Description:
A member of the RNA family "Glycine riboswitch aptamer" from Chenggangzhangella methanolivorans, 104 nucleotides long. Pairs were carried over by alignment from the consensus structure.

RNA sequence: ACAGACGAUGCGGGAGAGCCCAGCCCUCUUUUCGCAGGAUCGGUAUGGCGCCGACGGAGCAACCGCCCCCGGAAACUCUCAGGCACAAUCACCGCAUCGUUGGA
Numbered sequence: 001a002c003a004g005a006c007g008a009u010g011c012g013g014g015a016g017a018g019c020c021c022a023g024c025c026c027u028c029u030u031u032u033c034g035c036a037g038g039a040u041c042g043g044u045a046u047g048g049c050g051c052c053g054a055c056g057g058a059g060c061a062a063c064c065g066c067c068c069c070c071g072g073a074a075a076c077u078c079u080c081a082g083g084c085a086c087a088a089u090c091a092c093c094g095c096a097u098c099g100u101u102g103g104a
Base pairs, nucleotide, nucleotide: 006099007098008097009096010095011094012093013092020048021047022046050084051083052082053080054079057078058077059076063071